A member of the RNA family "serC leader" from Prosthecomicrobium pneumaticum, 52 nucleotides long. It is annotated as a cis-regulatory leader.
[Rfam]
RNA sequence: CGGCGGGACACCCUUCCCCACCGAAGGGCGCCUAUCUGAGAGGGUAGACAGA
Numbered sequence: 001c002g003g004c005g006g007g008a009c010a011c012c013c014u015u016c017c018c019c020a021c022c023g024a025a026g027g028g029c030g031c032c033u034a035u036c037u038g039a040g041a042g043g044g045u046a047g048a049c050a051g052a
Base pairs, nucleotide, nucleotide: 011028012027013026014025015024016023032047033046034045035044036043037042